[Rfam]
RNA sequence: UUUCCUCAGCCUUACUCCAGGGGCUUCUCGUCAGUGGAGUGCCCUGCAUUGCCUGAGGAUAGAUGAGAAAGCACGUGUCCCUCCCCAGGCAGACUCCAUGCUCUUCUGGGGCCUACACAUUGAGCUGACAGU
Number, nucleotide and partner (000 for none) at each position: 001u000002u000003u059004c058005c057006u056007c055008a054009g053010c000011c051012u000013u000014a000015c000016u000017c000018c046019a045020g044021g043022g042023g040024c039025u038026u037027c036028u000029c000030g000031u000032c000033a000034g000035u000036g027037g026038a025039g024040u023041g000042c022043c021044c020045u019046g018047c000048a000049u000050u000051g011052c000053c009054u008055g007056a006057g005058g004059a003060u000061a000062g000063a000064u000065g000066a000067g000068a000069a000070a126071g125072c124073a000074c122075g121076u000077g000078u000079c000080c000081c000082u000083c111084c110085c109086c108087a107088g106089g000090c000091a104092g103093a102094c000095u000096c000097c000098a000099u000100g000101c000102u093103c092104u091105u000106c088107u087108g086109g085110g084111g083112c000113c000114u000115a000116c000117a000118c000119a000120u000121u075122g074123a000124g072125c071126u070127g000128a000129c000130a000131g000132u000
RNA: Small nucleolar RNA SNORA49
Organism: Orycteropus afer